RNA sequence: CUGCAUUCUCAGGGCGGGGUGCAAGUCCCCACCGGCGGUGAUGGCGGUUUUCCGCAUGAGCCCGCGAGCGCCGUACCAUGCAACGUGGUGCGGGUCAGCAGAUACCGGUGAGAUCCCGGAGCCGACGGUAACAGUCCGGAUGAAAGAGAACGGUU
Numbered sequence: 001c002u003g004c005a006u007u008c009u010c011a012g013g014g015c016g017g018g019g020u021g022c023a024a025g026u027c028c029c030c031a032c033c034g035g036c037g038g039u040g041a042u043g044g045c046g047g048u049u050u051u052c053c054g055c056a057u058g059a060g061c062c063c064g065c066g067a068g069c070g071c072c073g074u075a076c077c078a079u080g081c082a083a084c085g086u087g088g089u090g091c092g093g094g095u096c097a098g099c100a101g102a103u104a105c106c107g108g109u110g111a112g113a114u115c116c117c118g119g120a121g122c123c124g125a126c127g128g129u130a131a132c133a134g135u136c137c138g139g140a141u142g143a144a145a146g147a148g149a150a151c152g153g154u155u
Stems, first nucleotide, its partner, number of pairs: 004152001006150005017029003031135002033124002035065004060122002068099002103120001105119004126138003
RNA: FMN riboswitch aptamer (RFN element)
Organism: Desulfovibrio piger